The record is a 74-nucleotide RNA from Silurus meridionalis, which matches "Small nucleolar RNA SNORD2" in Rfam. For this family Rfam cites "Identification of a novel box C/D snoRNA from mouse nucleolar cDNA library" (Zhou et al., Gene, 2004).

RNA sequence: GUAUGAAAUGAUGGUAUUCCAUCUUUCGGGACUGACACAUUAUGGAGAUGCUUUUAUAACUUUACUGAUCAUAU
Numbered sequence: 001g002u003a004u005g006a007a008a009u010g011a012u013g014g015u016a017u018u019c020c021a022u023c024u025u026u027c028g029g030g031a032c033u034g035a036c037a038c039a040u041u042a043u044g045g046a047g048a049u050g051c052u053u054u055u056a057u058a059a060c061u062u063u064a065c066u067g068a069u070c071a072u073a074u
Base pairs, nucleotide, nucleotide: 001074002073003072004071005070006069
Record summary: By type it is a C/D-box small nucleolar RNA. The base pairs follow the family's consensus structure, which was predicted with WAR. It scores 57 bits against the family's covariance model. The organism belongs to Silurus, within Eukaryota.